RNA: Small Cajal body specific RNA 4
RNA sequence: ACUGGAGGACUGUCAGACUUGAGUCUGAAGAGUGAGACUUUGGAUGACAGAAGCCUCCUAAAAGAAAAGGGAUGGAGAGGGCAGUCCUACUUAGAGUAAAACCCAAGGGCUGACUGUGCUAUCCAACACUU
Numbered sequence: 001a002c003u004g005g006a007g008g009a010c011u012g013u014c015a016g017a018c019u020u021g022a023g024u025c026u027g028a029a030g031a032g033u034g035a036g037a038c039u040u041u042g043g044a045u046g047a048c049a050g051a052a053g054c055c056u057c058c059u060a061a062a063a064g065a066a067a068a069g070g071g072a073u074g075g076a077g078a079g080g081g082c083a084g085u086c087c088u089a090c091u092u093a094g095a096g097u098a099a100a101a102c103c104c105a106a107g108g109g110c111u112g113a114c115u116g117u118g119c120u121a122u123c124c125a126a127c128a129c130u131u
Stems, first nucleotide, its partner, number of pairs: 003060001004058005017045001018043002021040006069124003080115002082112007094102001
Dot-bracket structure: ..((((((........(((.((((((........)))))).)).)........))))).)........(((........(((((((((.....(.......)...))))))).))......))).......